Shown here is a 73-nucleotide sequence from Holothuria leucospilota, a member of the family "tRNA". It is annotated as a transfer RNA. The base pairs follow the family's consensus structure, which is taken from published work.
[Rfam]
RNA sequence: GCCUCAGUGGCUCAGUGGUCAGAGCAUCCGCCUUGUAAGCGGGAGGUCGCUGGUUCGAAUCCUGCUUGAGGCU
Numbered sequence: 001g002c003c004u005c006a007g008u009g010g011c012u013c014a015g016u017g018g019u020c021a022g023a024g025c026a027u028c029c030g031c032c033u034u035g036u037a038a039g040c041g042g043g044a045g046g047u048c049g050c051u052g053g054u055u056c057g058a059a060u061c062c063u064g065c066u067u068g069a070g071g072c073u
Base pairs, nucleotide, nucleotide: 001072002071003070004069005068006067007066010025011024012023013022027043028042029041030040031039049065050064052062053061
Dot-bracket structure: (((((((..((((........)))).(((((.......))))).....((.((.......)).))))))))).